[Rfam]
RNA sequence: GCCACACCCCCGGGGAGCGCCAGCAGGCGCUGAGAGUGCGGAAGGUCCGCAGACCCGUCAACCUGAUCCGGUUCGUACCGGCGUAGGGAGCAGGGCACCCACCGACAU
Numbered sequence: 001g002c003c004a005c006a007c008c009c010c011c012g013g014g015g016a017g018c019g020c021c022a023g024c025a026g027g028c029g030c031u032g033a034g035a036g037u038g039c040g041g042a043a044g045g046u047c048c049g050c051a052g053a054c055c056c057g058u059c060a061a062c063c064u065g066a067u068c069c070g071g072u073u074c075g076u077a078c079c080g081g082c083g084u085a086g087g088g089a090g091c092a093g094g095g096c097a098c099c100c101a102c103c104g105a106c107a108u
Stems, first nucleotide, its partner, number of pairs: 007095003011057004017030005037051005062087004068081004
Dot-bracket structure: ......(((.((((..(((((....)))))......(((((.....)))))..))))....((((..((((......))))..)))).....))).............
Background:
Rfam assigns this 108-nucleotide sequence from Georgenia satyanarayanai to the family "TPP riboswitch aptamer (THI element)". The source organism's lineage runs through Bacteria, Bacillati, Actinomycetes, Allobogoriellales and Georgenia. About the family: Vitamin B(1) in its active form thiamin pyrophosphate (TPP) is an essential coenzyme that is synthesised by coupling of pyrimidine and thiazole moieties in bacteria.